This 82-nucleotide RNA from Paenibacillus sp. GP183 belongs to the Rfam family "c-di-GMP-II-GCG riboswitch aptamer". Its Rfam clan is "c-di-GMP_II riboswitch clan". Its family is annotated with cyclic-di-GMP binding and regulation of gene expression in the Gene Ontology. NCBI's taxonomy places the organism under Bacteria, Bacillati, Caryophanales, Paenibacillaceae, Paenibacillus. A reference for the family is Weinberg et al. (2017), "Bioinformatic analysis of riboswitch structures uncovers variant classes with altered ligand specificity", Proc Natl Acad Sci U S A.
[Rfam]
RNA sequence: UCUUAGAAAAGAGCUGUGAAAUGUAGAGGUAACUGGUCGCCUUAUCUACAUGGAGCUAGUGGCGAACCCGACUUUUCUGAUU
Number, nucleotide and partner (000 for none) at each position: 001u000002c000003u080004u079005a078006g077007a076008a075009a074010a073011g072012a057013g056014c055015u000016g000017u000018g000019a000020a000021a051022u050023g049024u048025a047026g046027a045028g000029g000030u000031a000032a000033c000034u000035g069036g068037u065038c064039g063040c062041c061042u000043u000044a000045u027046c026047u025048a024049c023050a022051u021052g000053g000054a000055g014056c013057u012058a000059g000060u000061g041062g040063c039064g038065a037066a000067c000068c036069c035070g000071a000072c011073u010074u009075u008076u007077c006078u005079g004080a003081u000082u000